[Rfam]
RNA sequence: CCGCCCGUCGCUCCUACCGAUUGAAUGGUCCGGUGAAGCGUUCGGACUAUGACUCUCUGACGGUUCGCCGUCUAAGUGUCGUGGGAAGUUCGUUGAACCUUAUCAUUUAGAGGAAGGAGAAGUCGUAACAAGGUUUCCGUAGGUGAACCUGCGGAAGGAUCAUUA
Number, nucleotide and partner (000 for none) at each position: 001c132002c000003g129004c000005c000006c125007g124008u000009c122010g000011c119012u118013c117014c116015u115016a000017c113018c112019g000020a000021u109022u000023g108024a107025a106026u105027g104028g103029u102030c000031c000032g099033g098034u097035g000036a000037a094038g093039c092040g091041u000042u000043c088044g000045g000046a000047c084048u083049a082050u081051g080052a079053c078054u000055c076056u075057c000058u000059g072060a071061c070062g069063g000064u000065u000066c000067g000068c000069c062070g061071u060072c059073u000074a000075a056076g055077u000078g053079u052080c051081g050082u049083g048084g047085g000086a000087a000088g043089u000090u000091c040092g039093u038094u037095g000096a000097a034098c033099c032100u000101u000102a029103u028104c027105a026106u025107u024108u023109a021110g000111a000112g018113g017114a000115a015116g014117g013118a012119g011120a000121a000122g009123u000124c007125g006126u000127a000128a000129c003130a000131a000132g001133g000134u157135u156136u155137c154138c153139g152140u151141a150142g149143g148144u000145g000146a000147a000148c143149c142150u141151g140152c139153g138154g137155a136156a135157g134158g000159a000160u000161c000162a000163u000164u000165a000
RNA: Eukaryotic small subunit ribosomal RNA, nucleotides 2048 to 2212
Organism: Bathycoccus prasinos